[Rfam]
RNA: Glycine riboswitch aptamer
RNA sequence: UGACCCUGUGCGGGAGAGUGUCCGCCGCAGCCAGCGCGGACCGCCGAAGGAGCAAACCCUCCCCAGAGAACCUCUCAGGCGCGAUGGACCGCACGGGCGAG
Numbered sequence: 001u002g003a004c005c006c007u008g009u010g011c012g013g014g015a016g017a018g019u020g021u022c023c024g025c026c027g028c029a030g031c032c033a034g035c036g037c038g039g040a041c042c043g044c045c046g047a048a049g050g051a052g053c054a055a056a057c058c059c060u061c062c063c064c065a066g067a068g069a070a071c072c073u074c075u076c077a078g079g080c081g082c083g084a085u086g087g088a089c090c091g092c093a094c095g096g097g098c099g100a101g
Stems, first nucleotide, its partner, number of pairs: 006096008020041006043080003046076002050074003057066001
Dot-bracket structure: .....((((((((......((((((..........)))))).(((((..(((....(........).....))))).)))........)))))))).....